[Rfam]
RNA sequence: UGCUCUUACGAUGUCAAAACUUUCGUUCUGCUGAGAUUUCAAUGUGCUGAAAAGAAUUGGAUACCUGAACUGAGGAGUU
Number, nucleotide and partner (000 for none) at each position: 001u000002g000003c077004u076005c075006u074007u000008a000009c000010g000011a000012u000013g000014u000015c000016a000017a000018a000019a000020c000021u000022u000023u000024c000025g000026u000027u000028c000029u000030g000031c000032u000033g000034a000035g000036a000037u000038u000039u000040c000041a000042a000043u000044g000045u000046g000047c000048u000049g000050a000051a000052a000053a000054g000055a000056a000057u000058u000059g000060g000061a000062u000063a000064c000065c000066u000067g000068a000069a000070c000071u000072g000073a000074g006075g005076a004077g003078u000079u000
The family of this 79-nucleotide sequence from Brassica carinata is "Small nucleolar RNA Z159/U59". Rfam classes the family as a C/D-box small nucleolar RNA. The source organism's lineage runs through Eukaryota, Streptophyta, Embryophyta, Tracheophyta and Brassica. Rfam 15.1 lists 1,401 matches to the family in 272 species. The match comes from Rfam's covariance-model search (50 bits). Rfam links the family to the GO terms nucleolus and RNA processing.